[Rfam]
RNA sequence: AGCGGAUGCCCUUCUGAGUGGGCUCAAUGUGACCGUGGUAAGCCACAUUCUCCCAGCUCAGAGGGGCAUUCGUGUGUCACGACCCGCGCUCACCAGCAACAUUCGGCGGUGGAUCCAG
Numbered sequence: 001a002g003c004g005g006a007u008g009c010c011c012u013u014c015u016g017a018g019u020g021g022g023c024u025c026a027a028u029g030u031g032a033c034c035g036u037g038g039u040a041a042g043c044c045a046c047a048u049u050c051u052c053c054c055a056g057c058u059c060a061g062a063g064g065g066g067c068a069u070u071c072g073u074g075u076g077u078c079a080c081g082a083c084c085c086g087c088g089c090u091c092a093c094c095a096g097c098a099a100c101a102u103u104c105g106g107c108g109g110u111g112g113a114u115c116c117a118g
Stems, first nucleotide, its partner, number of pairs: 002073009011063003015060003019056001021054002026049003030045001033042001101114005
RNA: Actinobacteria sRNA Ms_IGR-7
Organism: Pseudonocardia asaccharolytica